Source information: A member of the RNA family "small nucleolar RNA snoR135" from Citrus unshiu, 147 nucleotides long. The family's RNA type in Rfam is H/ACA-box small nucleolar RNA. A search with the family's covariance model found it, with a score of 131 bits. Gene Ontology terms of the family: RNA processing and nucleolus. Taxonomically the source falls in Citrus (Eukaryota, Streptophytina, Embryophyta, Aurantioideae).
[Rfam]
RNA sequence: UUGGCAGGAAUUGUGUGUAUCGACAUUGUGCUACAUUCUAUGCACUCUGUUUCGAAAGUGUUCCCUGCUAAAUUAAUCUAGGGAAGAUGGGCAGUUGUCUUUCAAUUUCCACGAUUGAAAUUGUCAACAAUCAUCUUCCCAAUAUCA
Dot-bracket structure: ...(((((.(....((((((...................))))))................).)))))............((((((((((...((((...........................))))..)))))))))).......